[Rfam]
RNA sequence: GGGGUGGUAGCUCAGAUGGGAGAGCGCGUCGUUCGCAAUGACGAGGUCGGGGGUUCGAUCCCCCCUCACUCCA
Number, nucleotide and partner (000 for none) at each position: 001g072002g071003g070004g069005u068006g067007g066008u000009a000010g025011c024012u023013c022014a000015g000016a000017u000018g000019g000020g000021a000022g013023a012024g011025c010026g000027c043028g042029u041030c040031g039032u000033u000034c000035g000036c000037a000038a000039u031040g030041a029042c028043g027044a000045g000046g000047u000048c000049g065050g064051g063052g062053g061054u000055u000056c000057g000058a000059u000060c000061c053062c052063c051064c050065c049066u007067c006068a005069c004070u003071c002072c001073a000
This 73-nucleotide RNA sequence from Pseudoxanthomonas dokdonensis belongs to the Rfam family "tRNA". Lineage of the source: Bacteria > Pseudomonadati > Pseudomonadota > Lysobacterales > Pseudoxanthomonas. The family's RNA type in Rfam is transfer RNA.